[Rfam]
RNA sequence: CCCCCACCCAUGUAUAUAGGACCCCAAAGGAUCACCAUUAAAGUUAGCGCGAAUCUUUAGAAAAGUUAUCACAUAGGUGUGGGACUUGACUUUUCUAUAGAUCCAUGCUAAAUUUAAUGAUGAUCAUUUGGGGUCUUACACACAUGGGUGGGGG
Numbered sequence: 001c002c003c004c005c006a007c008c009c010a011u012g013u014a015u016a017u018a019g020g021a022c023c024c025c026a027a028a029g030g031a032u033c034a035c036c037a038u039u040a041a042a043g044u045u046a047g048c049g050c051g052a053a054u055c056u057u058u059a060g061a062a063a064a065g066u067u068a069u070c071a072c073a074u075a076g077g078u079g080u081g082g083g084a085c086u087u088g089a090c091u092u093u094u095c096u097a098u099a100g101a102u103c104c105a106u107g108c109u110a111a112a113u114u115u116a117a118u119g120a121u122g123a124u125c126a127u128u129u130g131g132g133g134u135c136u137u138a139c140a141c142a143c144a145u146g147g148g149u150g151g152g153g154g
Stems, first nucleotide, its partner, number of pairs: 002153012015140001017138012030125003034121001036119007044111006051104001053102004058097011069082005
RNA: MIR8565 microRNA precursor family